[Rfam]
RNA: Glycine riboswitch aptamer
RNA sequence: UGCCUGUCUGUGGGAGAGAGCAGCGAAGAGCUGCCGCCGAAGGGGAAAUCGCCCGAAAUCUCUCAGGCAAAAGAACCGUAGACGGGCC
Numbered sequence: 001u002g003c004c005u006g007u008c009u010g011u012g013g014g015a016g017a018g019a020g021c022a023g024c025g026a027a028g029a030g031c032u033g034c035c036g037c038c039g040a041a042g043g044g045g046a047a048a049u050c051g052c053c054c055g056a057a058a059u060c061u062c063u064c065a066g067g068c069a070a071a072a073g074a075a076c077c078g079u080a081g082a083c084g085g086g087c088c
Base pairs, nucleotide, nucleotide: 006083007082008081009080010079011078012077013076020034021033022032023031036068037067038066039064040063043062044061045060049056050055